[Rfam]
RNA sequence: GGAAUCCCACUAGAAAAGGUUUAGCCAAUCAUUCUAUAGCGAGUCUUGGGAAGCACGGGGCGACCCGUGUUUCUAAGUGUAGACAGCAAACUAGUGCACGAUGGCGCAAAUACAUGCACACCAAUAACAACCAAUUAAGUAUUAUGCAGCCAAGAGUUUAUUUGCAUAUGUCCAGCAAAAUGGUUUAGCCAAAUACUG
Numbered sequence: 001g002g003a004a005u006c007c008c009a010c011u012a013g014a015a016a017a018g019g020u021u022u023a024g025c026c027a028a029u030c031a032u033u034c035u036a037u038a039g040c041g042a043g044u045c046u047u048g049g050g051a052a053g054c055a056c057g058g059g060g061c062g063a064c065c066c067g068u069g070u071u072u073c074u075a076a077g078u079g080u081a082g083a084c085a086g087c088a089a090a091c092u093a094g095u096g097c098a099c100g101a102u103g104g105c106g107c108a109a110a111u112a113c114a115u116g117c118a119c120a121c122c123a124a125u126a127a128c129a130a131c132c133a134a135u136u137a138a139g140u141a142u143u144a145u146g147c148a149g150c151c152a153a154g155a156g157u158u159u160a161u162u163u164g165c166a167u168a169u170g171u172c173c174a175g176c177a178a179a180a181u182g183g184u185u186u187a188g189c190c191a192a193a194u195a196c197u198g
Stems, first nucleotide, its partner, number of pairs: 011036005018030004022174001024172001039087002043084004047079002049074011104190001106189002125187002132149001136144003156184003161179005